The family of this 265-nucleotide RNA from Syntrophaceticus schinkii is "Bacterial large signal recognition particle RNA".
For this family Rfam cites "Kinship in the SRP RNA family" (Rosenblad et al., RNA Biol, 2009).
By type it is a non-coding RNA gene.
The source organism's lineage runs through Bacteria, Bacillati, Bacillota, Clostridia and Syntrophaceticus.
Its family is annotated with signal recognition particle, plasma membrane targeting and SRP-dependent cotranslational protein targeting to membrane, signal sequence recognition in the Gene Ontology.
RNA sequence: UCGUGCUAGAUGGGGAGGUAGCGGUUCCCUGUAACCCGCAGUCCGCUAUAGCGGGGUCGAAUUCCUGUCCGAGGGUUAGCCUUGUGGGGCUGCCCGGUAUAAGUGGUGUAGACGUUUGGGUCCCACGCAGCAGGAACCCACGAACCCCGUCAGGUCCGGAAGGAAGCAGCGGUAAGUGGACUAUCCUGGGUGCCGUGGGAGUGCCUGAACCGAGCUAACUGUACCGGUACCGCCUGGAAGGUGUAAUUCGGAGACAGGUGCACGG
Numbered sequence: 001u002c003g004u005g006c007u008a009g010a011u012g013g014g015g016a017g018g019u020a021g022c023g024g025u026u027c028c029c030u031g032u033a034a035c036c037c038g039c040a041g042u043c044c045g046c047u048a049u050a051g052c053g054g055g056g057u058c059g060a061a062u063u064c065c066u067g068u069c070c071g072a073g074g075g076u077u078a079g080c081c082u083u084g085u086g087g088g089g090c091u092g093c094c095c096g097g098u099a100u101a102a103g104u105g106g107u108g109u110a111g112a113c114g115u116u117u118g119g120g121u122c123c124c125a126c127g128c129a130g131c132a133g134g135a136a137c138c139c140a141c142g143a144a145c146c147c148c149g150u151c152a153g154g155u156c157c158g159g160a161a162g163g164a165a166g167c168a169g170c171g172g173u174a175a176g177u178g179g180a181c182u183a184u185c186c187u188g189g190g191u192g193c194c195g196u197g198g199g200a201g202u203g204c205c206u207g208a209a210c211c212g213a214g215c216u217a218a219c220u221g222u223a224c225c226g227g228u229a230c231c232g233c234c235u236g237g238a239a240g241g242u243g244u245a246a247u248u249c250g251g252a253g254a255c256a257g258g259u260g261c262a263c264g265g
Stems, first nucleotide, its partner, number of pairs: 001265006009058003012030006019023001035055005064258006073249005079242005085236004091229002095226006103219002105216003114210008122199006128190001131188005138179004147172004155164003